RNA sequence: GUUAUUCGAAGUGGAAGAUUUCGUACAAUCCACACGCCGAUGGUACUGACAGGGGAAUCCCGAGAGAUGCAGGAGAGUUGUACGCCUGCCGAAUAAC
Numbered sequence: 001g002u003u004a005u006u007c008g009a010a011g012u013g014g015a016a017g018a019u020u021u022c023g024u025a026c027a028a029u030c031c032a033c034a035c036g037c038c039g040a041u042g043g044u045a046c047u048g049a050c051a052g053g054g055g056a057a058u059c060c061c062g063a064g065a066g067a068u069g070c071a072g073g074a075g076a077g078u079u080g081u082a083c084g085c086c087u088g089c090c091g092a093a094u095a096a097c
Stems, first nucleotide, its partner, number of pairs: 001097008011033005023083005035064001036044003069089005
The record is a 97-nucleotide RNA, which matches "skipping-rope RNA" in Rfam. Pairs were carried over by alignment from the consensus structure, which is taken from published work. It is one of the family's seed sequences.